Source information: Shown here is an 82-nucleotide RNA from Monodelphis domestica, a member of the family "mir-186 microRNA precursor family". For this family Rfam cites "New microRNAs from mouse and human" (Lagos-Quintana et al., RNA, 2003). The base pairs follow the family's consensus structure, which was predicted with RNAalifold. Rfam links the family to the GO terms RISC complex and miRNA-mediated post-transcriptional gene silencing.
[Rfam]
RNA sequence: GCUCACAACCUUCCAAAGAAUUCUCCUUUUGGGCUUUUGAUUCUUAAUUUCAGCCCAAAGGUGAAUUUUUUGGGAUGUUUGA
Numbered sequence: 001g002c003u004c005a006c007a008a009c010c011u012u013c014c015a016a017a018g019a020a021u022u023c024u025c026c027u028u029u030u031g032g033g034c035u036u037u038u039g040a041u042u043c044u045u046a047a048u049u050u051c052a053g054c055c056c057a058a059a060g061g062u063g064a065a066u067u068u069u070u071u072g073g074g075a076u077g078u079u080u081g082a
Stems, first nucleotide, its partner, number of pairs: 008078002011075013025061005031056005